Description:
A member of the RNA family "mir-8834 microRNA precursor family" from Vulpes vulpes, 104 nucleotides long. It scores 76 bits against the family's covariance model. The base pairs follow the family's consensus structure, which was predicted with RNAalifold.
[Rfam]
RNA sequence: AGGAAGAUCACCCCAAUGGCGGGGGCAGCUCUGGAAACCUGGAGUCAGCUCCCGCAGUAACUACGGAGCUCUCCGUCUGCAGGGCCUGGGGGCUCCGGGGCGGG
Dot-bracket structure: .(((....(((((....(((((((..(((((((.(...(((.............)))....).))))))))))))))....)))..)).....)))........
Numbered sequence: 001a002g003g004a005a006g007a008u009c010a011c012c013c014c015a016a017u018g019g020c021g022g023g024g025g026c027a028g029c030u031c032u033g034g035a036a037a038c039c040u041g042g043a044g045u046c047a048g049c050u051c052c053c054g055c056a057g058u059a060a061c062u063a064c065g066g067a068g069c070u071c072u073c074c075g076u077c078u079g080c081a082g083g084g085c086c087u088g089g090g091g092g093c094u095c096c097g098g099g100g101c102g103g104g
Stems, first nucleotide, its partner, number of pairs: 002096003009088002011084003018077007027070007035062001039057003